[Rfam]
RNA sequence: UUCAUUUAGAAUUAGGUUUGAUUCUGUUGAUCUUAAAAUAAAAGGUUAAUUAGUUGGUCGGUUAGCUUUAAUGCUGAUUUGACCUAGUUAGUUUUCCAACAUG
Numbered sequence: 001u002u003c004a005u006u007u008a009g010a011a012u013u014a015g016g017u018u019u020g021a022u023u024c025u026g027u028u029g030a031u032c033u034u035a036a037a038a039u040a041a042a043a044g045g046u047u048a049a050u051u052a053g054u055u056g057g058u059c060g061g062u063u064a065g066c067u068u069u070a071a072u073g074c075u076g077a078u079u080u081g082a083c084c085u086a087g088u089u090a091g092u093u094u095u096c097c098a099a100c101a102u103g
Base pairs, nucleotide, nucleotide: 002030003029004028007026008025009024010023011022012021013020014019044097045096048093049092050091051090052089055086056084057083058082059081060080061079062077063076064075065074066073